[Rfam]
Nucleotides: 583
Base pairs, nucleotide, nucleotide: 001577002576003575004574005573006572007571010569011568012567014564015563022398023397024396025395027394028393029390030389031388032387033386035193036192037191038190042185043184044183045182046181047180048179051158052157053156055154056153057152058151059150060149061148062147063146064145065144066143067142068141078140079139080138081137082136085123086122087121100113101112102111103110104109162173163172164171165170196209197207198206199205210232211231212230213229214228215227235338236337241293242292243291244290245289246288247273248272250268251267252266253265254264255263274283275282298324299323300322301321302320303319304318305317306316326335328333349376350375351374352373353372355371356370357369358368359367407448408447409446411445412442413441414440415439416438417437418436422432423431459534460532461531462530463529464526465523466522467521468520469519472497473496476491477490478489479488480487500512501511502510503509540558541557542556543555544553545552546551
Number, partner (000 for none) and nucleotide at each position: 001577c002576c003575c004574c005573c006572a007571a008000g009000g010569g011568g012567a013000a014564g015563c016000g017000a018000a019000g020000a021000c022398c023397c024396u025395a026000u027394a028393g029390a030389g031388c032387u033386u034000u035193a036192c037191u038190g039000c040000a041000g042185g043184c044183u045182g046181u047180c048179g049000c050000u051158g052157a053156g054000a055154c056153a057152c058151g059150g060149u061148c062147g063146c064145u065144a066143a067142u068141g069000u070000g071000c072000a073000g074000g075000a076000u077000a078140g079139g080138u081137a082136g083000g084000a085123g086122a087121c088000g089000u090000u091000a092000c093000a094000c095000a096000g097000g098000u099000a100113c101112c102111c103110g104109c105000g106000c107000u108000a109104g110103c111102g112101g113100g114000c115000c116000a117000c118000c119000g120000a121087g122086u123085c124000a125000a126000c127000a128000c129000u130000g131000a132000a133000a134000u135000a136082c137081u138080a139079c140078c141068c142067a143066u144065u145064a146063g147062u148061g149060a150059c151058u152057g153056u154055g155000a156053c157052u158051c159000u160000c161000a162173c163172u164171c165170c166000u167000g168000g169000c170165g171164g172163a173162g174000g175000a176000c177000a178000c179048c180047g181046g182045u183044a184043g185042c186000c187000g188000g189000g190038c191037a192036g193035u194000u195000u196209g197207a198206c199205u200000g201000g202000g203000g204000c205199g206198g207197u208000a209196c210232g211231c212230g213229c214228u215227u216000g217000a218000a219000a220000a221000g222000a223000u224000a225000u226000c227215g228214a229213g230212c231211g232210c233000g234000c235338c236337c237000u238000a239000u240000g241293u242292c243291c244290a245289c246288c247273u248272c249000a250268u251267c252266c253265g254264a255263g256000u257000c258000g259000g260000a261000g262000a263255c264254u265253c266252g267251g268250a269000g270000c271000a272248g273247a274283g275282c276000g277000c278000a279000a280000g281000a282275g283274c284000a285000u286000a287000c288246g289245g290244u291243g292242g293241g294000c295000u296000g297000a298324c299323a300322c301321u302320g303319u304318c305317c306316u307000u308000c309000a310000c311000a312000a313000c314000g315000a316306g317305g318304g319303a320302c321301g322300g323299u324298g325000a326335c327000g328333c329000g330000a331000a332000a333328g334000c335326g336000u337236g338235g339000u340000c341000u342000a343000g344000c345000g346000a347000a348000c349376c350375a351374a352373u353372u354000a355371u356370c357369c358368u359367g360000c361000u362000u363000g364000a365000u366000g367359c368358g369357g370356g371355a372353a373352a374351u375350u376349g377000a378000u379000g380000a381000c382000a383000g384000a385000a386033a387032a388031g389030c390029u391000a392000c393028c394027u395025u396024a397023g398022g399000g400000a401000u402000a403000a404000c405000a406000g407448a408447g409446u410000c411445g412442u413441c414440a415439c416438c417437g418436g419000c420000a421000a422432g423431a424000g425000c426000a427000c428000a429000u430000a431423u432422c433000g434000a435000c436418c437417c438416g439415g440414u441413g442412g443000c444000u445411u446409g447408c448407u449000a450000c451000c452000u453000c454000g455000a456000u457000g458000u459534c460532g461531g462530u463529u464526c465523c466522c467521u468520c469519c470000a471000u472497c473496c474000u475000g476491c477490c478489c479488g480487u481000g482000c483000a484000g485000a486000a487480g488479c489478g490477g491476g492000c493000a494000a495000g496473g497472g498000u499000g500512a501511g502510g503509u504000u505000g506000u507000u508000c509503g510502c511501c512500u513000a514000u515000u516000a517000a518000a519469g520468g521467a522466g523465g524000u525000c526464g527000u528000g529463a530462g531461c532460u533000g534459g535000g536000u537000u538000u539000a540558g541557a542556c543555c544553g545552u546551c547000g548000u549000g550000a551546g552545a553544c554000a555543g556542g557541u558540c559000g560000g561000c562000u563015g564014c565000u566000a567012u568011c569010u570000a571007u572006u573005g574004g575003g576002g577001g578000u579000g580000u581000a582000a583000c
Rfam assigns this 583-nucleotide part of an RNA from Haloarchaeobius iranensis to the family "Archaeal large subunit ribosomal RNA". For this family Rfam cites "Crystal structure of the ribosome at 5.5 A resolution" (Yusupov et al., Science, 2001).